[Rfam]
RNA sequence: UGGCACGUCAGAGUGACUGUGAUUUGUAGAGAAUGUUCAUAUCACAGCCAGCUUUGAUGAGCUUCA
Numbered sequence: 001u002g003g004c005a006c007g008u009c010a011g012a013g014u015g016a017c018u019g020u021g022a023u024u025u026g027u028a029g030a031g032a033a034u035g036u037u038c039a040u041a042u043c044a045c046a047g048c049c050a051g052c053u054u055u056g057a058u059g060a061g062c063u064u065c066a
Base pairs, nucleotide, nucleotide: 006059007058008057009056010055011054012053013052014050015049017047018046019045020044021043022042025041026040027039

Record summary
The family of this 66-nucleotide RNA from Biomphalaria glabrata is "mir-2 microRNA precursor family". The match comes from Rfam's covariance-model search (60 bits). The organism belongs to Biomphalaria, within Eukaryota. The family's consensus secondary structure was predicted with PFOLD.